[Rfam]
RNA sequence: UCUUCGUUCGGCGUACUCUCUCACCGGUCAGAUUAACGAGAGAGUACGACGAAUGAAGAGA
Numbered sequence: 001u002c003u004u005c006g007u008u009c010g011g012c013g014u015a016c017u018c019u020c021u022c023a024c025c026g027g028u029c030a031g032a033u034u035a036a037c038g039a040g041a042g043a044g045u046a047c048g049a050c051g052a053a054u055g056a057a058g059a060g061a
Stems, first nucleotide, its partner, number of pairs: 001059007010050001012048006019041004
mir-8364 microRNA precursor family: a 61-nucleotide sequence from Pristionchus pacificus. The match comes from Rfam's covariance-model search (68 bits). Its family is annotated with RISC complex and miRNA-mediated post-transcriptional gene silencing in the Gene Ontology.